Description
Shown here is an 85-nucleotide RNA from Panicum miliaceum, a member of the family "Small nucleolar RNA U54". The organism belongs to Panicum sect. Panicum, within Eukaryota.
RNA sequence: UGCUCAAUGAUUUAACCAUGUUAACACAUGGUAAUAUACGCUAUUCUGAUCCACAUGAGGAUGCAAUAAAAGCUUUAUGAGAGCA
Numbered sequence: 001u002g003c004u005c006a007a008u009g010a011u012u013u014a015a016c017c018a019u020g021u022u023a024a025c026a027c028a029u030g031g032u033a034a035u036a037u038a039c040g041c042u043a044u045u046c047u048g049a050u051c052c053a054c055a056u057g058a059g060g061a062u063g064c065a066a067u068a069a070a071a072g073c074u075u076u077a078u079g080a081g082a083g084c085a
Stems, first nucleotide, its partner, number of pairs: 001085005

It is annotated as a C/D-box small nucleolar RNA. Clan: U54 clan. Rfam describes the family as follows. U54 is a C/D box small nucleolar RNA, which acts as a methylation guide for 18S ribosomal RNA in plants.